RNA sequence: ACGUCUCUCAGGUUCUAGCACGGCCCUCGGAAUGGCUAGAACUUUUUGAUGGCGCCACUUAACCGUGGCGCCAUUUUUUUU
Numbered sequence: 001a002c003g004u005c006u007c008u009c010a011g012g013u014u015c016u017a018g019c020a021c022g023g024c025c026c027u028c029g030g031a032a033u034g035g036c037u038a039g040a041a042c043u044u045u046u047u048g049a050u051g052g053c054g055c056c057a058c059u060u061a062a063c064c065g066u067g068g069c070g071c072c073a074u075u076u077u078u079u080u081u
Base pairs, nucleotide, nucleotide: 010044011043012042013041014040015039016038017037018036019035024030025029049074050073051072052071053070054069055068056067057066058065
Source information
The record is an 81-nucleotide RNA sequence from Trinickia terrae, which matches "Burkholderia sRNA 54" in Rfam. A reference for the family is Sass et al. (2017), "Identification of small RNAs abundant in Burkholderia cenocepacia biofilms reveal putative regulators with a potential role in carbon and iron metabolism", Sci Rep. The family's RNA type in Rfam is small RNA. About the family: Identified by RNA-seq, RACE and Northern blot. Strongly expressed in biofilm.